[Rfam]
Record summary
Archaeal signal recognition particle RNA: a 314-nucleotide sequence from Saccharolobus islandicus. Rfam classes the family as a non-coding RNA gene.

RNA sequence: AUGGGGCCAGGGAGGGUGGGGGAUCUCGCCAAUCCCUGUGACCCGCAAGGCGUAAUGCGGGCACCAGUAACUCCUACCCCAUGGUGUCUCCUAUCUGUAGGUCCCAGUGGAGCUAUGAAGGCUGCCCAGCGGGGCUUGGCGGUCAUGGGCUUCCUCUCCGGAGGGAGGGGAAGUACCACGAUAGCUGGGGGAAUCGGCGAGGCCCGGAAGGGAGCAGCCGUGCCCGGACGCCAGCGUUCGCUGGUCAACAGCCAGAGUGAAACUGGGGCAAGCCUAUAGAUAGGUAGGCCAUGGAGUAGGGGGUCUGGCCCCAU
Numbered sequence: 001a002u003g004g005g006g007c008c009a010g011g012g013a014g015g016g017u018g019g020g021g022g023a024u025c026u027c028g029c030c031a032a033u034c035c036c037u038g039u040g041a042c043c044c045g046c047a048a049g050g051c052g053u054a055a056u057g058c059g060g061g062c063a064c065c066a067g068u069a070a071c072u073c074c075u076a077c078c079c080c081a082u083g084g085u086g087u088c089u090c091c092u093a094u095c096u097g098u099a100g101g102u103c104c105c106a107g108u109g110g111a112g113c114u115a116u117g118a119a120g121g122c123u124g125c126c127c128a129g130c131g132g133g134g135c136u137u138g139g140c141g142g143u144c145a146u147g148g149g150c151u152u153c154c155u156c157u158c159c160g161g162a163g164g165g166a167g168g169g170g171a172a173g174u175a176c177c178a179c180g181a182u183a184g185c186u187g188g189g190g191g192a193a194u195c196g197g198c199g200a201g202g203c204c205c206g207g208a209a210g211g212g213a214g215c216a217g218c219c220g221u222g223c224c225c226g227g228a229c230g231c232c233a234g235c236g237u238u239c240g241c242u243g244g245u246c247a248a249c250a251g252c253c254a255g256a257g258u259g260a261a262a263c264u265g266g267g268g269c270a271a272g273c274c275u276a277u278a279g280a281u282a283g284g285u286a287g288g289c290c291a292u293g294g295a296g297u298a299g300g301g302g303g304u305c306u307g308g309c310c311c312c313a314u
Stems, first nucleotide, its partner, number of pairs: 001314009015065004019037006042061006069304001071302007079294005085288001087286001090284011101269008112258003116254001120253005126244008134235003138232004142182003146178003149174011185227003189224002195220004203212003